[Rfam]
RNA sequence: GGGCCUGAAAUGAUGUUCUGAGUUCAUGUCUCUUCUCUGAGAUGUCUCAUGGAGACAGCCAGAUACGUUUCUGAUCAGGCUU
Numbered sequence: 001g002g003g004c005c006u007g008a009a010a011u012g013a014u015g016u017u018c019u020g021a022g023u024u025c026a027u028g029u030c031u032c033u034u035c036u037c038u039g040a041g042a043u044g045u046c047u048c049a050u051g052g053a054g055a056c057a058g059c060c061a062g063a064u065a066c067g068u069u070u071c072u073g074a075u076c077a078g079g080c081u082u
Stems, first nucleotide, its partner, number of pairs: 001082005
The record is an 82-nucleotide RNA sequence from Bombycilla garrulus, which matches "Small nucleolar RNA SNORD111" in Rfam. Gene Ontology terms of the family: nucleolus and RNA processing. On this family, see Huttenhofer et al., EMBO J 2001: "RNomics: an experimental approach that identifies 201 candidates for novel, small, non-messenger RNAs in mouse". The family has 5 seed sequences and 894 matches in Rfam 15.1. Taxonomically the source falls in Bombycilla (Eukaryota, Sauria, Dinosauria, Bombycillidae).